[Rfam]
RNA sequence: AUACGUGUAGGGUGGAGAUGUACAACUGUCGGACUGCGUAGCUCAUAGCUUGAUCAAAGACGCCUCAUCUCGUCCGCUUCCGCCAGUUGAUUCCUCCUCCUGACUGAGUGCUUUCUGUCACCACAGCAAGCAGGAGACGUCCGUCGCGACCGCGGCCCUCGAUGGCCGACCGUCGCUAGACAGUGGAACGAUUUACGACCGUUUCUGACGCGCCUGACACCGACUCUGAUAGUCGUGUGUGCCUAACGUGGCUUCCGCUAGCCCGGAGCCCA
Numbered sequence: 001a002u003a004c005g006u007g008u009a010g011g012g013u014g015g016a017g018a019u020g021u022a023c024a025a026c027u028g029u030c031g032g033a034c035u036g037c038g039u040a041g042c043u044c045a046u047a048g049c050u051u052g053a054u055c056a057a058a059g060a061c062g063c064c065u066c067a068u069c070u071c072g073u074c075c076g077c078u079u080c081c082g083c084c085a086g087u088u089g090a091u092u093c094c095u096c097c098u099c100c101u102g103a104c105u106g107a108g109u110g111c112u113u114u115c116u117g118u119c120a121c122c123a124c125a126g127c128a129a130g131c132a133g134g135a136g137a138c139g140u141c142c143g144u145c146g147c148g149a150c151c152g153c154g155g156c157c158c159u160c161g162a163u164g165g166c167c168g169a170c171c172g173u174c175g176c177u178a179g180a181c182a183g184u185g186g187a188a189c190g191a192u193u194u195a196c197g198a199c200c201g202u203u204u205c206u207g208a209c210g211c212g213c214c215u216g217a218c219a220c221c222g223a224c225u226c227u228g229a230u231a232g233u234c235g236u237g238u239g240u241g242c243c244u245a246a247c248g249u250g251g252c253u254u255c256c257g258c259u260a261g262c263c264c265g266g267a268g269c270c271c272a
Stems, first nucleotide, its partner, number of pairs: 014097004023089006030082003036077003040050003059074004098135005138210004143181003146176004153168005185205006217240004221235004251270001253268005
The family of this 272-nucleotide sequence from Pseudomonas sp. THAF187a is "rne-II RNA". NCBI's taxonomy places the organism under Bacteria, Pseudomonadati, Pseudomonadota, Gammaproteobacteria, Pseudomonas. The family's RNA type in Rfam is cis-regulatory element.